[Rfam]
RNA sequence: UGACCCUUAUUAAGCCGAGGGUCACCUAGCCAACUGACGUUGUUAGUGAAUAUAUUUGUUCACAUCAUAUCUGGCCAAGCCCACCUUUUGGGCUUGGCUUUUUUUCU
Numbered sequence: 001u002g003a004c005c006c007u008u009a010u011u012a013a014g015c016c017g018a019g020g021g022u023c024a025c026c027u028a029g030c031c032a033a034c035u036g037a038c039g040u041u042g043u044u045a046g047u048g049a050a051u052a053u054a055u056u057u058g059u060u061c062a063c064a065u066c067a068u069a070u071c072u073g074g075c076c077a078a079g080c081c082c083a084c085c086u087u088u089u090g091g092g093c094u095u096g097g098c099u100u101u102u103u104u105u106c107u
Base pairs, nucleotide, nucleotide: 001024002023003022004021005020006019042070043069046063047062048061049060050059051058052057075097076096077095078094079093080092081091082090

Description: Rfam assigns this 107-nucleotide sequence from Vibrio agarilyticus to the family "Qrr RNA". Rfam classes the family as a small RNA. Its family is annotated with quorum sensing in the Gene Ontology. Lineage of the source: Bacteria > Pseudomonadota > Vibrionales > Vibrionaceae > Vibrio. From the family's description: This family represents a set of small RNAs (the Qrr RNAs) that are thought to be involved in the regulation of quorum sensing in Vibrio species. It is believed that these RNAs, guided by a protein, Hfq, can mediate the destabilisation of the quorum-sensing master regulators LuxR/HapR mRNAs.